[Rfam]
RNA sequence: CCAUGAAUAUUUCCACUGUUCUGAUUUUGUAAUAAUCACAGCAGGCUAACCAUUUGCUAUAAUAAGACCAUGCGUGUGUCCCCAGACUUUGUUCUUUCCCUAGGUCUGGUUUUAUCAUUGCUGGUGAUAAAC
Dot-bracket structure: ...((..........(((((.(((((.......))))).)))))..........))..........((((.((........((((((((.(........).))))))))..........)))))).......
Numbered sequence: 001c002c003a004u005g006a007a008u009a010u011u012u013c014c015a016c017u018g019u020u021c022u023g024a025u026u027u028u029g030u031a032a033u034a035a036u037c038a039c040a041g042c043a044g045g046c047u048a049a050c051c052a053u054u055u056g057c058u059a060u061a062a063u064a065a066g067a068c069c070a071u072g073c074g075u076g077u078g079u080c081c082c083c084a085g086a087c088u089u090u091g092u093u094c095u096u097u098c099c100c101u102a103g104g105u106c107u108g109g110u111u112u113u114a115u116c117a118u119u120g121c122u123g124g125u126g127a128u129a130a131a132c
Stems, first nucleotide, its partner, number of pairs: 004056002016044005022038005067125004072121002082109008091100001